[Rfam]
Description:
The record is a 126-nucleotide RNA sequence from Bacillus salinus, which matches "ylbH leader" in Rfam. For this family Rfam cites "New RNA motifs suggest an expanded scope for riboswitches in bacterial genetic control" (Barrick et al., Proc Natl Acad Sci U S A, 2004).

RNA sequence: ACAAAAAUACCCUGCAAGAGACCCUGCAGGGUUCCUUCUAACUUUGAAUUAUCUUCAAAACAGAAGGCAAAGGGAGAGGAGAAACCGGAGGAAGAACUUAUGGGGAAACGUAAGUCUUCUCCGCGG
Dot-bracket structure: ........(((((((.((.....)))))))))(((((.....(((((.......)))))..........)))))...........((((.((((.(((((..........)))))))))))))...